A member of the RNA family "Glutamine-II riboswitch aptamer" from Prochlorococcus marinus, 63 nucleotides long. A reference for the family is Huang et al. (2019), "Structure and ligand binding of the glutamine-II riboswitch", Nucleic Acids Res. Rfam's curators put it in the seed alignment. Lineage of the source: Bacteria > Cyanophyceae > Synechococcales > Prochlorococcaceae > Prochlorococcus marinus.
RNA sequence: AAACGUUCAACUCAUCAAAUGAUGAGCCGCAGUUUGACUCAGGCCAAGGAACGGGGACUUGAG
Numbered sequence: 001a002a003a004c005g006u007u008c009a010a011c012u013c014a015u016c017a018a019a020u021g022a023u024g025a026g027c028c029g030c031a032g033u034u035u036g037a038c039u040c041a042g043g044c045c046a047a048g049g050a051a052c053g054g055g056g057a058c059u060u061g062a063g
Stems, first nucleotide, its partner, number of pairs: 004053005011026004038063006044056002